The record is a 71-nucleotide RNA sequence from Donacobius atricapilla, which matches "mir-34 microRNA precursor family" in Rfam. Clan: mir-34 clan. For this family Rfam cites "Vertebrate microRNA genes" (Lim et al., Science, 2003). A search with the family's covariance model found it, with a score of 57 bits. Lineage of the source: Eukaryota > Craniata > Archosauria > Neoaves > Donacobius. Its family is annotated with miRNA-mediated post-transcriptional gene silencing and RISC complex in the Gene Ontology.
RNA sequence: GUUUUGAUGGCAGUGAAGUUAGUGAUUGUGGAAUUACGGGUACAAUCAGCUAACUACACUGCCUGCAAACC
Dot-bracket structure: ..((((..((.((((.((((((((((((((..........)))))))).)))))).)))).))..))))..